Overview
A member of the RNA family "small nucleolar RNA snoR135" from Cannabis sativa, 144 nucleotides long. For this family Rfam cites "Mining small RNA sequencing data: a new approach to identify small nucleolar RNAs in Arabidopsis" (Chen and Wu, Nucleic Acids Res, 2009). The family's consensus secondary structure was predicted with RNAalifold. Rfam 15.1 lists 837 matches to the family in 220 species.
RNA sequence: AAAGCAGGAAUUGUGUGUAUCGGCAUUGUGCUAAUUUCAGUGCAUAUUCUCCGAAAGUGUUUCCUGCAAAAUUAACUUGGGGAAAGUGGGCAGUUGUGUUUCAUGUUCUUUGGUUGAAAUUCAACAAUCAUUUUCCUCAUAUCC
Numbered sequence: 001a002a003a004g005c006a007g008g009a010a011u012u013g014u015g016u017g018u019a020u021c022g023g024c025a026u027u028g029u030g031c032u033a034a035u036u037u038c039a040g041u042g043c044a045u046a047u048u049c050u051c052c053g054a055a056a057g058u059g060u061u062u063c064c065u066g067c068a069a070a071a072u073u074a075a076c077u078u079g080g081g082g083a084a085a086g087u088g089g090g091c092a093g094u095u096g097u098g099u100u101u102c103a104u105g106u107u108c109u110u111u112g113g114u115u116g117a118a119a120u121u122c123a124a125c126a127a128u129c130a131u132u133u134u135c136c137u138c139a140u141a142u143c144c
Base pairs, nucleotide, nucleotide: 004067005066006065007064008063009062010061015045016044017043018042019041020040079138080137081136082135083134084133085132086131087130088129089128093125094124095123096122